[Rfam]
RNA sequence: UAUAACUUGACGGAGUACAGCCAAUAAGCUGUUGAGACUGUCUUAUAACCCAAGCGUUGUUGCAGACAGAUACCGUUGAACCUGAAGGUUAAGACCUGCGUAGGAAUCAAGUUAAUGAAAGUA
Number, nucleotide and partner (000 for none) at each position: 001u000002a000003u000004a000005a000006c111007u110008u109009g108010a107011c075012g074013g073014a000015g000016u069017a032018c031019a030020g029021c028022c000023a000024a000025u000026a000027a000028g021029c020030u019031g018032u017033u000034g000035a000036g000037a000038c000039u068040g067041u066042c065043u064044u000045a000046u000047a000048a000049c000050c000051c000052a000053a000054g000055c000056g000057u000058u000059g000060u000061u000062g000063c000064a043065g042066a041067c040068a039069g016070a000071u000072a000073c013074c012075g011076u000077u000078g000079a000080a000081c104082c103083u102084g101085a000086a097087g096088g095089u000090u000091a000092a000093g000094a000095c088096c087097u086098g000099c000100g000101u084102a083103g082104g081105a000106a000107u010108c009109a008110a007111g006112u000113u000114a000115a000116u000117g000118a000119a000120a000121g000122u000123a000
The record is a 123-nucleotide RNA sequence from Moraxella cuniculi, which matches "TPP riboswitch aptamer (THI element)" in Rfam. NCBI's taxonomy places the organism under Bacteria, Pseudomonadota, Gammaproteobacteria, Moraxellaceae, Moraxella cuniculi. It scores 56 bits against the family's covariance model.